[Rfam]
RNA: small nucleolar RNA snoR17
RNA sequence: CCUUAUAUGAUGAAAAACAAAAGCGACUGAACAGAUUUGAUGAGUCUCACAAUUUCACCAAGAUCUCUGAUGAG
Numbered sequence: 001c002c003u004u005a006u007a008u009g010a011u012g013a014a015a016a017a018c019a020a021a022a023g024c025g026a027c028u029g030a031a032c033a034g035a036u037u038u039g040a041u042g043a044g045u046c047u048c049a050c051a052a053u054u055u056c057a058c059c060a061a062g063a064u065c066u067c068u069g070a071u072g073a074g
Stems, first nucleotide, its partner, number of pairs: 002074004